[Rfam]
RNA: Small nucleolar RNA SNORA51
RNA sequence: AGCCAUCUUGUUGCUUACUGCAAGCUGUGUUCUUACACUGACUAUAUAGAAACAGGAGGCAGAGUAAACCCACCCCAUGUACACUUCAGUCCAGGCAGGCCCUUUGCCUGGUCUGUAUUGUGAAUGGGGGGACAUGG
Numbered sequence: 001a002g003c004c005a006u007c008u009u010g011u012u013g014c015u016u017a018c019u020g021c022a023a024g025c026u027g028u029g030u031u032c033u034u035a036c037a038c039u040g041a042c043u044a045u046a047u048a049g050a051a052a053c054a055g056g057a058g059g060c061a062g063a064g065u066a067a068a069c070c071c072a073c074c075c076c077a078u079g080u081a082c083a084c085u086u087c088a089g090u091c092c093a094g095g096c097a098g099g100c101c102c103u104u105u106g107c108c109u110g111g112u113c114u115g116u117a118u119u120g121u122g123a124a125u126g127g128g129g130g131g132a133c134a135u136g137g
Stems, first nucleotide, its partner, number of pairs: 002060003006057004022043001027038004073129006087115003091111006